RNA sequence: ACCUCUGAGCCAUCUCUCCAGCCCCCAUACUUACUUUUUAAAGUAUUUUUUAAUUGUGUGUGUGUGUGUGUGUGUAAGAGUUGUGUGUGAGGGCUGGAGAGAUGGCUCAGAGGU
Numbered sequence: 001a002c003c004u005c006u007g008a009g010c011c012a013u014c015u016c017u018c019c020a021g022c023c024c025c026c027a028u029a030c031u032u033a034c035u036u037u038u039u040a041a042a043g044u045a046u047u048u049u050u051u052a053a054u055u056g057u058g059u060g061u062g063u064g065u066g067u068g069u070g071u072g073u074g075u076a077a078g079a080g081u082u083g084u085g086u087g088u089g090a091g092g093g094c095u096g097g098a099g100a101g102a103u104g105g106c107u108c109a110g111a112g113g114u
Stems, first nucleotide, its partner, number of pairs: 002113023
RNA: mir-3473 microRNA precursor family
Organism: Microtus ochrogaster